[Rfam]
The family of this 486-nucleotide part of an RNA from Emiliania huxleyi is "Eukaryotic large subunit ribosomal RNA". The match comes from Rfam's covariance-model search (3078 bits). The family's consensus secondary structure is taken from published work. On this family, see Cannone et al., BMC Bioinformatics 2002: "The comparative RNA web (CRW) site: an online database of comparative sequence and structure information for ribosomal, intron, and other RNAs".

RNA sequence: UAGAGCAAUGUAGGUAAGGGAAGUCGGCAAAAUGGUUCCGCAACCUCGGGAGAAGGAAUGGCUCUGAAGGCUGGGCGCAGGGGUCCUAGGCUCGAGGCCGGCUGGCUGCGCGGGGACUACGGCCUCACGGCUGCGGAUCCCGCGCGGCCGUCCGGCGGACGGCCUAGGAGCGCUCCGGCUCUCCCUGCGCGACGAACAGCCGCUUCAGAACUGGCGCGGACAAGGGGAAUCCGACUGUUUAAUUAAAACAAAGCAUUGCGAUGGCCCGCGAGGGUGCUGACGCAAUGUGAUUUCUGCCCAGUGCUCUGAAUGUCAAAGUGAAGAAAUUCAACCAAGCGCGGGUAAACGGCGGGAGUAACUAUGACUCUCUUAAGGUAGCCAAAUGCCUCGUCAUCCAAUUAGUGACGCGCAUGAAUGGAUUCGUGAGAUUCCCACUGUCCCUAUCUACUGUCUAGCGAAACCACAGCCAAGGGAACGGGCUUGGAA
Numbered sequence: 001u002a003g004a005g006c007a008a009u010g011u012a013g014g015u016a017a018g019g020g021a022a023g024u025c026g027g028c029a030a031a032a033u034g035g036u037u038c039c040g041c042a043a044c045c046u047c048g049g050g051a052g053a054a055g056g057a058a059u060g061g062c063u064c065u066g067a068a069g070g071c072u073g074g075g076c077g078c079a080g081g082g083g084u085c086c087u088a089g090g091c092u093c094g095a096g097g098c099c100g101g102c103u104g105g106c107u108g109c110g111c112g113g114g115g116a117c118u119a120c121g122g123c124c125u126c127a128c129g130g131c132u133g134c135g136g137a138u139c140c141c142g143c144g145c146g147g148c149c150g151u152c153c154g155g156c157g158g159a160c161g162g163c164c165u166a167g168g169a170g171c172g173c174u175c176c177g178g179c180u181c182u183c184c185c186u187g188c189g190c191g192a193c194g195a196a197c198a199g200c201c202g203c204u205u206c207a208g209a210a211c212u213g214g215c216g217c218g219g220a221c222a223a224g225g226g227g228a229a230u231c232c233g234a235c236u237g238u239u240u241a242a243u244u245a246a247a248a249c250a251a252a253g254c255a256u257u258g259c260g261a262u263g264g265c266c267c268g269c270g271a272g273g274g275u276g277c278u279g280a281c282g283c284a285a286u287g288u289g290a291u292u293u294c295u296g297c298c299c300a301g302u303g304c305u306c307u308g309a310a311u312g313u314c315a316a317a318g319u320g321a322a323g324a325a326a327u328u329c330a331a332c333c334a335a336g337c338g339c340g341g342g343u344a345a346a347c348g349g350c351g352g353g354a355g356u357a358a359c360u361a362u363g364a365c366u367c368u369c370u371u372a373a374g375g376u377a378g379c380c381a382a383a384u385g386c387c388u389c390g391u392c393a394u395c396c397a398a399u400u401a402g403u404g405a406c407g408c409g410c411a412u413g414a415a416u417g418g419a420u421u422c423g424u425g426a427g428a429u430u431c432c433c434a435c436u437g438u439c440c441c442u443a444u445c446u447a448c449u450g451u452c453u454a455g456c457g458a459a460a461c462c463a464c465a466g467c468c469a470a471g472g473g474a475a476c477g478g479g480c481u482u483g484g485a486a
Base pairs, nucleotide, nucleotide: 001454002453003452004451010448011447012446013445014444015443016442018440019439020438035059036058037057038056039055044049060212061211063209064208065207066206067205068204069201070200071199072198073197075190076189077188078187079186080185081184082183083182084169085168086167088165089164090163091162097156098155099154100153101152103150104149105148106147107146108145109144110143111142112141113140114139115138117136118135120133121132122131123130124129213217225433226432227431228430229429230428231427232425233424236250237249238248253288254287255286256285257284258283259282260281264275265274266273267272292419293418294417296350297349298348301347302346303343304342305341306340308339311338312337313336319330320329321328322327351369352368353367354366355365356364370374390406391405392404393403394402467484468483469482470481471480